This 54-nucleotide RNA sequence from Pseudanabaenaceae cyanobacterium LEGE 13415 belongs to the Rfam family "Nitrogen stress-induced RNA 1".
The organism belongs to Pseudanabaenaceae, within Bacteria.
The family's RNA type in Rfam is small RNA.
A reference for the family is Ionescu et al. (2010), "Heterocyst-specific transcription of NsiR1, a non-coding RNA encoded in a tandem array of direct repeats in cyanobacteria", J Mol Biol.
The base pairs follow the family's consensus structure.

[Rfam]
RNA sequence: UGGUAGAUGCACCCUGACUAAUUCCCUGGAGAAUAUUCUCUGGGGGAUUUUUUA
Number, nucleotide and partner (000 for none) at each position: 001u000002g013003g012004u011005a000006g000007a000008u000009g000010c000011a004012c003013c002014c000015u000016g000017a000018c000019u000020a000021a000022u000023u046024c045025c044026c043027u042028g041029g040030a039031g038032a037033a000034u000035a000036u000037u032038c031039u030040c029041u028042g027043g026044g025045g024046g023047a000048u000049u000050u000051u000052u000053u000054a000